ZMP/ZTP riboswitch aptamer (pfl RNA motif): an 83-nucleotide sequence from Kosakonia cowanii. The match comes from Rfam's covariance-model search (52 bits). The base pairs follow the family's consensus structure, which is taken from published work. Gene Ontology terms of the family: regulation of purine nucleotide biosynthetic process and one-carbon metabolic process.
[Rfam]
RNA sequence: AUGCGCUCAUGUUACUGACGCUUAAAGAUAGAUCACUAUCGGGAAGCAUGGGUUAUUGCGAGCCGCGCGUCUGGGCAUAACUU
Numbered sequence: 001a002u003g004c005g006c007u008c009a010u011g012u013u014a015c016u017g018a019c020g021c022u023u024a025a026a027g028a029u030a031g032a033u034c035a036c037u038a039u040c041g042g043g044a045a046g047c048a049u050g051g052g053u054u055a056u057u058g059c060g061a062g063c064c065g066c067g068c069g070u071c072u073g074g075g076c077a078u079a080a081c082u083u
Stems, first nucleotide, its partner, number of pairs: 005053008015043002017071005028039004060078001062076003